Overview: This 141-nucleotide RNA from Streptomyces swartbergensis belongs to the Rfam family "Streptomyces-metH RNA". Lineage of the source: Bacteria > Actinomycetota > Actinomycetes > Kitasatosporales > Streptomyces.
RNA sequence: CGCGUCCGUCCCGUGGACGCCCUGCCCAUCCCGGCCCGCUCCCGGUUACGCUGGCGCCGUGCGCCUUUUCCCGGAUGCCCUCCGCGUGUCCGGGCAGCCGCAUAGCCGACAGCCGUCGCACUUGAGGGAGCCCCUUACAUG
Numbered sequence: 001c002g003c004g005u006c007c008g009u010c011c012c013g014u015g016g017a018c019g020c021c022c023u024g025c026c027c028a029u030c031c032c033g034g035c036c037c038g039c040u041c042c043c044g045g046u047u048a049c050g051c052u053g054g055c056g057c058c059g060u061g062c063g064c065c066u067u068u069u070c071c072c073g074g075a076u077g078c079c080c081u082c083c084g085c086g087u088g089u090c091c092g093g094g095c096a097g098c099c100g101c102a103u104a105g106c107c108g109a110c111a112g113c114c115g116u117c118g119c120a121c122u123u124g125a126g127g128g129a130g131c132c133c134c135u136u137a138c139a140u141g
Stems, first nucleotide, its partner, number of pairs: 060102004065097002068094003105119002108117003